[Rfam]
RNA sequence: UGCCACGUCAAACUGGAGGUGAUUUGUCGCAAAUUUACAAAUUCAUAUCACAGCCAGCUUUGAUGUGCCGUG
Numbered sequence: 001u002g003c004c005a006c007g008u009c010a011a012a013c014u015g016g017a018g019g020u021g022a023u024u025u026g027u028c029g030c031a032a033a034u035u036u037a038c039a040a041a042u043u044c045a046u047a048u049c050a051c052a053g054c055c056a057g058c059u060u061u062g063a064u065g066u067g068c069c070g071u072g
Base pairs, nucleotide, nucleotide: 005066006065007064008063009062010061011060012059014056015055016054019051020050021049022048025047026046027045
RNA: mir-2 microRNA precursor family